[Rfam]
RNA: Small nucleolar RNA Z199
RNA sequence: GGGUAAAGUGAUGAGGAAUAAACCAUCAACAAUAUGAUGGAGCUCUUCUCCUCUGAUACUUAGUAUUUAAGUCUUUGAUUGUACC
Numbered sequence: 001g002g003g004u005a006a007a008g009u010g011a012u013g014a015g016g017a018a019u020a021a022a023c024c025a026u027c028a029a030c031a032a033u034a035u036g037a038u039g040g041a042g043c044u045c046u047u048c049u050c051c052u053c054u055g056a057u058a059c060u061u062a063g064u065a066u067u068u069a070a071g072u073c074u075u076u077g078a079u080u081g082u083a084c085c
Stems, first nucleotide, its partner, number of pairs: 001085002004083001005080002039051004